[Rfam]
RNA: Vault RNA
Organism: Plectus sambesii
RNA sequence: GUGCCGGCAUAGCCGAGUGGUUACUUCACUCAAAUUGAAAAUGUCCCCCGUCAGUCACACAGGUCAAGACAACCUCAAACUGCGGCCUGAAAACCGCACAUAACCAACGGCGCCGUCUGGCACUUUU
Numbered sequence: 001g002u003g004c005c006g007g008c009a010u011a012g013c014c015g016a017g018u019g020g021u022u023a024c025u026u027c028a029c030u031c032a033a034a035u036u037g038a039a040a041a042u043g044u045c046c047c048c049c050g051u052c053a054g055u056c057a058c059a060c061a062g063g064u065c066a067a068g069a070c071a072a073c074c075u076c077a078a079a080c081u082g083c084g085g086c087c088u089g090a091a092a093a094c095c096g097c098a099c100a101u102a103a104c105c106a107a108c109g110g111c112g113c114c115g116u117c118u119g120g121c122a123c124u125u126u127u
Stems, first nucleotide, its partner, number of pairs: 002122006012111004018106003025091004